[Rfam]
RNA sequence: AUUUCUUAAACUAUACGUCACACAUAUAUCGGCACACUUGUCUGGGUGCCCUAGCUGUUAAAGCGGGGUUGGCUUGUGGGAUAUAUGGAGGCCUAAC
Numbered sequence: 001a002u003u004u005c006u007u008a009a010a011c012u013a014u015a016c017g018u019c020a021c022a023c024a025u026a027u028a029u030c031g032g033c034a035c036a037c038u039u040g041u042c043u044g045g046g047u048g049c050c051c052u053a054g055c056u057g058u059u060a061a062a063g064c065g066g067g068g069u070u071g072g073c074u075u076g077u078g079g080g081a082u083a084u085a086u087g088g089a090g091g092c093c094u095a096a097c
Stems, first nucleotide, its partner, number of pairs: 023087008035078003040073003048069005
Rfam assigns this 97-nucleotide RNA from Saccharophagus degradans to the family "t44 RNA". The sequence is in the family's curated seed alignment. Rfam classes the family as a small RNA. The family's consensus secondary structure was predicted with LocARNA. Taxonomically the source falls in Saccharophagus degradans (Bacteria, Pseudomonadota, Cellvibrionales, Saccharophagus). From the family's description: This family consists of a number of bacterial RNA genes of between 135 and 170 bases in length. The t44 gene has been identified in several species of enteric bacteria but homologs have also been identified in Pseudomonas and Coxiella species. The t44 gene is found between the map and rpsB genes in all species in the full alignment apart from Shigella flexneri. The function of this RNA is unknown.